About this RNA
Shown here is a 376-nucleotide RNA sequence from Oceanobacillus indicireducens, a member of the family "Bacterial RNase P class B". It scores 324 bits against the family's covariance model. Gene Ontology terms of the family: tRNA processing, ribonuclease P activity and dimeric ribonuclease P complex. Pairs were carried over by alignment from the consensus structure, which is taken from published work. From the family's description: Ribonuclease P (RNase P) is a ubiquitous endoribonuclease, found in archaea, bacteria and eukarya as well as chloroplasts and mitochondria. Its best characterised activity is the generation of mature 5'-ends of tRNAs by cleaving the 5'-leader elements of precursor-tRNAs. Cellular RNase Ps are ribonucleoproteins. RNA from bacterial RNase Ps retains its catalytic activity in the absence of the protein subunit, i.e. it is a ribozyme. On this family, see Frank and Pace, Annu Rev Biochem 1998: "Ribonuclease P: unity and diversity in a tRNA processing ribozyme".
[Rfam]
Nucleotides: 376
Stems, first nucleotide, its partner, number of pairs: 004376003007372001008313007016029005034370003038367005043228005048065006071223005076097006098115001099113006116218002119158004127149004134143003164216002166212003181200008232248003252282005283298006315355002319351005
Number, partner (000 for none) and nucleotide at each position: 001000g002000u003000a004376c005375u006374c007372a008313u009312g010311u011310a012309a013308u014307c015000g016029c017028u018027g019026c020025g021000u022000u023000u024000g025020c026019g027018c028017a029016g030000a031000g032000g033000a034370a035369a036368g037000u038367c039366c040365a041364u042363g043228c044227u045226c046225a047224c048065a049064c050063a051062g052061g053060c054000u055000g056000a057000g058000a059000u060053g061052c062051u063050u064049g065048u066000a067000g068000u069000g070000u071223u072222c073221g074220u075219g076097c077096u078095u079094g080093a081092c082000g083000a084000a085000a086000c087000g088000a089000u090000a091000a092081g093080u094079c095078a096077a097076g098115g099113u100112a101111g102110c103109c104108a105000a106000u107000u108104u109103g110102g111101u112100u113099a114000a115098c116218g117217g118000c119158a120157g121156g122155a123000g124000a125000a126000a127149u128148u129147c130146c131000u132000a133000a134143g135142u136141c137000u138000a139000a140000c141136g142135a143134u144000a145000a146130g147129g148128a149127a150000g151000a152000c153000a154000c155122u156121c157120c158119u159000u160000g161000a162000a163000a164216g165215u166212g167211c168210c169000a170000c171000a172000g173000a174000g175000a176000c177000g178000g179000a180000g181200c182199u183198g184197g185196a186195u187194u188193g189000g190000a191000a192000a193188c194187a195186a196185u197184u198183c199182a200181g201000g202000u203000g204000g205000a206000a207000c208000g209000a210168g211167g212166u213000a214000a215165a216164c217117c218116c219075c220074a221073c222072g223071a224047g225046u226045g227044a228043g229000c230000a231000a232248c233247c234246c235000a236000a237000a238000c239000u240000u241000u242000g243000g244000u245000a246234g247233g248232g249000g250000c251000a252282c253281u254280c255279u256278u257000g258000a259000u260000u261000a262000g263000g264000g265000a266000a267000u268000u269000g270000a271000a272000c273000c274000g275000a276000a277000a278256g279255a280254g281253g282252g283298a284297c285296a286295g287294a288293c289000a290000u291000u292000u293288g294287u295286c296285u297284g298283u299000a300000g301000a302000u303000a304000g305000a306000u307014g308013a309012u310011u311010a312009c313008a314000c315355c316354c317000a318000a319351u320350g321349u322348a323347c324000g325000a326000g327000g328000u329000u330000a331000a332000a333000g334000a335000c336000c337000g338000c339000c340000g341000u342000u343000u344000g345000c346000a347323g348322u349321a350320c351319a352000g353000c354316g355315g356000g357000a358000c359000a360000g361000a362000a363042c364041a365040u366039g367038g368036c369035u370034u371000a372007u373000c374006g375005a376004g